Rfam assigns this 244-nucleotide RNA sequence to the family "Clostridiales-3 RNA". The family's consensus secondary structure is taken from published work.
RNA sequence: AAGAGAGUCGAAGAAUCGAAAGAAGAAGAUGAAGCAGCAGGGUGCAUUUAAUGUUUACGGAAGGAUAAUAAACCACAGAGGAAUUAAAAGUUCCUUAUCCUCGAAAUGGCUUGAGAGGAGAUAGUAUUAGGAUAACAAUGCGUCGUGAAGCUUAAUAAGCGCUCAUCUGUAAUUCCCGGGAAUGAGUACAUUCCGUCGUGUACGGGGCGAAGAGGUGAUUCAAGAGAAUCAACGUACACCUACA
Numbered sequence: 001a002a003g004a005g006a007g008u009c010g011a012a013g014a015a016u017c018g019a020a021a022g023a024a025g026a027a028g029a030u031g032a033a034g035c036a037g038c039a040g041g042g043u044g045c046a047u048u049u050a051a052u053g054u055u056u057a058c059g060g061a062a063g064g065a066u067a068a069u070a071a072a073c074c075a076c077a078g079a080g081g082a083a084u085u086a087a088a089a090g091u092u093c094c095u096u097a098u099c100c101u102c103g104a105a106a107u108g109g110c111u112u113g114a115g116a117g118g119a120g121a122u123a124g125u126a127u128u129a130g131g132a133u134a135a136c137a138a139u140g141c142g143u144c145g146u147g148a149a150g151c152u153u154a155a156u157a158a159g160c161g162c163u164c165a166u167c168u169g170u171a172a173u174u175c176c177c178g179g180g181a182a183u184g185a186g187u188a189c190a191u192u193c194c195g196u197c198g199u200g201u202a203c204g205g206g207g208c209g210a211a212g213a214g215g216u217g218a219u220u221c222a223a224g225a226g227a228a229u230c231a232a233c234g235u236a237c238a239c240c241u242a243c244a
Stems, first nucleotide, its partner, number of pairs: 007030003016023002074147003078096007098119005120144003124141005150160003179194006198239007217230005